[Rfam]
Nucleotides: 033
Stems, first nucleotide, its partner, number of pairs: 003020003010032003
Number, partner (000 for none) and nucleotide at each position: 001000a002000a003020c004019a005018g006000g007000g008000a009000a010032g011031c012030c013000g014000a015000a016000a017000a018005c019004u020003g021000a022000a023000u024000a025000g026000a027000g028000u029000a030012g031011g032010u033000a
Rfam assigns this 33-nucleotide RNA from Flavobacteria bacterium BAL38 to the family "DUF805b RNA". It is annotated as a cis-regulatory element. The source organism's lineage runs through Bacteria, Pseudomonadati, Bacteroidota, Flavobacteriia and Flavobacteriales.